A member of the RNA family "HDV ribozyme from F. prausnitzii" from Trachymyrmex cornetzi, 75 nucleotides long.
RNA sequence: GAUUCUCAAAAUCGUCCACCUCCUCGAGGUGAGAAUCGGGUAACUUUGAAAUAUUCAAAGGCAAAGGACGCUACU
Numbered sequence: 001g002a003u004u005c006u007c008a009a010a011a012u013c014g015u016c017c018a019c020c021u022c023c024u025c026g027a028g029g030u031g032a033g034a035a036u037c038g039g040g041u042a043a044c045u046u047u048g049a050a051a052u053a054u055u056c057a058a059a060g061g062c063a064a065a066g067g068a069c070g071c072u073a074c075u
Base pairs, nucleotide, nucleotide: 001037002036003035004034005033006032007031018030019029020028044060045059046058047057048056
Notes:
For this family Rfam cites "Widespread occurrence of self-cleaving ribozymes" (Webb et al., Science, 2009). The match comes from Rfam's covariance-model search (45 bits).